[Rfam]
RNA sequence: AGCACUGUAUGGUAUCUGCAGCCAGUUGGUUCAUCAGCUGGUAUGUUCAAAAGUCAGUGCAAGACAAACUCAACAUUGGCAUCGUUGGUCUCCAUGCUGCCGGUGUUUGGAGUCCUGGUAUACUUGUUGAGACACACUU
Dot-bracket structure: .((((((......((.((((..((((((......))))).)..)))....).))))))))..((((((.(((.....(((((((................)))))))........)))..)..)))))...........
The family of this 139-nucleotide RNA from Etheostoma spectabile is "Small nucleolar RNA SNORA8".
Its Rfam clan is "SNORA8 clan".
Rfam's curators write: ACA8 is a member of the H/ACA class of snoRNA that guide the sites of modification of uridines to pseudouridines.
The source organism's lineage runs through Eukaryota, Chordata, Euteleostomi, Euacanthomorphacea and Oligocephalus.
The match comes from Rfam's covariance-model search (50 bits).